[Rfam]
RNA sequence: UGCAUCUGUGAUGAAAAUUUGGCUCCCUCUGCUGAAACAAAUUGAGGAGAACAGCCUUAACCGUUACCCAACCUUUCUGAGAUGCU
Numbered sequence: 001u002g003c004a005u006c007u008g009u010g011a012u013g014a015a016a017a018u019u020u021g022g023c024u025c026c027c028u029c030u031g032c033u034g035a036a037a038c039a040a041a042u043u044g045a046g047g048a049g050a051a052c053a054g055c056c057u058u059a060a061c062c063g064u065u066a067c068c069c070a071a072c073c074u075u076u077c078u079g080a081g082a083u084g085c086u
Stems, first nucleotide, its partner, number of pairs: 002085005
The family of this 86-nucleotide sequence from Psophia crepitans is "Small nucleolar RNA SNORD100". NCBI's taxonomy places the organism under Eukaryota, Opisthokonta, Gnathostomata, Tetrapoda, Psophia. The family's consensus secondary structure was predicted with RNAalifold. The family's RNA type in Rfam is C/D-box small nucleolar RNA.